[Rfam]
RNA sequence: UCGGGCGCACCGCCGAAUUGCCACAGUCAUGGGGAAGAUGUCUGAGGCGAACCGGGGACCCAUGUGUGUGGGGUGAAUCGGAACGGACUGGUCUGUCACAGGACUGGCACGGACCGUAGGGCAGACCUUGGCCCGAACCCGUCAGCUCACCCGGUAGGCGUCGAGGCAACAUAGG
Numbered sequence: 001u002c003g004g005g006c007g008c009a010c011c012g013c014c015g016a017a018u019u020g021c022c023a024c025a026g027u028c029a030u031g032g033g034g035a036a037g038a039u040g041u042c043u044g045a046g047g048c049g050a051a052c053c054g055g056g057g058a059c060c061c062a063u064g065u066g067u068g069u070g071g072g073g074u075g076a077a078u079c080g081g082a083a084c085g086g087a088c089u090g091g092u093c094u095g096u097c098a099c100a101g102g103a104c105u106g107g108c109a110c111g112g113a114c115c116g117u118a119g120g121g122c123a124g125a126c127c128u129u130g131g132c133c134c135g136a137a138c139c140c141g142u143c144a145g146c147u148c149a150c151c152c153g154g155u156a157g158g159c160g161u162c163g164a165g166g167c168a169a170c171a172u173a174g175g
Stems, first nucleotide, its partner, number of pairs: 011160004018050005051155006061070002071140003079116003119134004
The record is a 175-nucleotide RNA from Aeromicrobium sp. Root344, which matches "c-di-AMP riboswitch aptamer (ydaO/yuaA leader)" in Rfam.